Shown here is a 118-nucleotide RNA from Clostridium sp. DL-VIII, a member of the family "Group II catalytic intron D1-D4-2". The family has 144 seed sequences and 1,231 matches in Rfam 15.1. From the family's description: Group II introns are found in rRNA, tRNA and mRNA of organelles in fungi, plants and protists, and also in mRNA in bacteria. Pairs were carried over by alignment from the consensus structure.
RNA sequence: GAUGGAAGGCUCAUCGAAAUUGCUGUACAGGCAGAGGUUUCAAACCACCUUAAGCUGCUUCAGUAAAAAGUUAAGGUAGUGAGCGUUAAGGAAAAGGCAAAACAAGAUUUUGUCAGGU
Numbered sequence: 001g002a003u004g005g006a007a008g009g010c011u012c013a014u015c016g017a018a019a020u021u022g023c024u025g026u027a028c029a030g031g032c033a034g035a036g037g038u039u040u041c042a043a044a045c046c047a048c049c050u051u052a053a054g055c056u057g058c059u060u061c062a063g064u065a066a067a068a069a070g071u072u073a074a075g076g077u078a079g080u081g082a083g084c085g086u087u088a089a090g091g092a093a094a095a096g097g098c099a100a101a102a103c104a105a106g107a108u109u110u111u112g113u114c115a116g117g118u
Base pairs, nucleotide, nucleotide: 001015002014003013004012005011016041017040018039019038020037021036023034024033025032026031046117048091049090050089051088052087053086054080055079057077058076059075062072063071064070096114097113098112099111100110101109